[Rfam]
Nucleotides: 108
Stems, first nucleotide, its partner, number of pairs: 001108024026083014041066001043064004
Number, partner (000 for none) and nucleotide at each position: 001108g002107g003106a004105a005104g006103u007102u008101a009100a010099g011098a012097a013096a014095c015094u016093g017092u018091u019090u020089c021088u022087u023086a024085a025000c026083u027082u028081u029080u030079a031078a032077c033076u034075a035074a036073a037072a038071a039070a040000g041066u042000u043064a044063a045062g046061a047000a048000c049000c050000g051000g052000u053000u054000c055000u056000u057000a058000a059000a060000g061046u062045c063044u064043u065000u066041a067000u068000u069000c070039u071038u072037u073036u074035u075034u076033a077032g078031u079030u080029a081028a082027a083026a084000a085024u086023u087022a088021a089020g090019a091018a092017a093016c094015a095014g096013u097012u098011u099010c100009u101008u102007a103006a104005c105004u106003u107002c108001c
Shown here is a 108-nucleotide RNA sequence from Brassica oleracea, a member of the family "MIR9563 microRNA precursor family". NCBI's taxonomy places the organism under Eukaryota, Tracheophyta, Spermatophyta, Brassicaceae, Brassica oleracea. The base pairs follow the family's consensus structure, which was predicted with RNAalifold.